[Rfam]
Nucleotides: 283
Base pairs, nucleotide, nucleotide: 019137020136021135022134023133024132025131026130027076028075029074030072031071032070035067036066037065038062039061040060041059042058044055045053046052081129082128083127084126085125092120094118096116098114148205150203154200155199156198157197162192163191165189166188167187168186169185170184171182172181210276213272214271215270216269217268226261227260229259230258233256234255235254238248239247240246241245
Number, partner (000 for none) and nucleotide at each position: 001000u002000u003000c004000a005000u006000c007000a008000c009000a010000a011000u012000a013000a014000c015000c016000c017000a018000c019137g020136g021135a022134u023133c024132u025131g026130u027076g028075c029074c030072c031071g032070a033000u034000a035067g036066u037065c038062c039061u040060c041059u042058g043000u044055u045053c046052g047000u048000a049000c050000a051000g052046c053045g054000a055044a056000u057000u058042c059041a060040g061039a062038g063000u064000c065037g066036a067035c068000g069000g070032u071031c072030g073000u074029g075028g076027c077000a078000g079000c080000u081129g082128a083127c084126u085125c086000c087000c088000u089000u090000c091000a092120u093000g094118g095000a096116a097000g098114c099000a100000u101000c102000c103000u104000u105000u106000u107000c108000c109000u110000u111000u112000a113000u114098g115000a116096u117000g118094u119000a120092a121000a122000u123000c124000c125085g126084a127083g128082u129081c130026a131025c132024a133023g134022g135021u136020c137019c138000c139000a140000g141000a142000g143000u144000a145000a146000a147000u148205g149000a150203g151000g152000c153000a154200u155199c156198u157197g158000g159000g160000a161000a162192g163191c164000u165189g166188a167187g168186c169185u170184c171182g172181c173000c174000g175000u176000a177000a178000a179000a180000a181172g182171c183000u184170g185169a186168g187167c188166u189165c190000g191163g192162c193000g194000g195000a196000a197157c198156a199155g200154a201000c202000g203150u204000c205148u206000u207000g208000u209000a210276g211000g212000c213272g214271u215270u216269a217268u218000a219000u220000u221000c222000c223000u224000a225000a226261c227260c228000g229259u230258u231000u232000u233256g234255c235254c236000a237000a238248g239247a240246c241245c242000u243000u244000u245241g246240g247239u248238c249000c250000a251000u252000g253000a254235g255234g256233c257000u258230g259229g260227g261226g262000a263000a264000a265000a266000c267000c268217a269216u270215a271214a272213c273000a274000c275000a276210c277000u278000a279000c280000a281000u282000c283000u